[Rfam]
Description
This 83-nucleotide RNA from Caballeronia telluris belongs to the Rfam family "Burkholderia sRNA 25". Identified by RNA-seq, RACE and Northern blot. Strongly expressed in biofilm. Rfam links the family to the GO term bacterial biofilm matrix. The source organism's lineage runs through Bacteria, Pseudomonadota, Burkholderiales, Burkholderiaceae and Caballeronia.
RNA sequence: UCUGCUUUCCGAAGCAGACUUUUUCGUUGACGGAAAAGAUCUCCAAACCUUUCAGCGCGACUCUUUAGUCGCGCUUUUUUUCG
Numbered sequence: 001u002c003u004g005c006u007u008u009c010c011g012a013a014g015c016a017g018a019c020u021u022u023u024u025c026g027u028u029g030a031c032g033g034a035a036a037a038g039a040u041c042u043c044c045a046a047a048c049c050u051u052u053c054a055g056c057g058c059g060a061c062u063c064u065u066u067a068g069u070c071g072c073g074c075u076u077u078u079u080u081u082c083g
Stems, first nucleotide, its partner, number of pairs: 001018007019038008054075009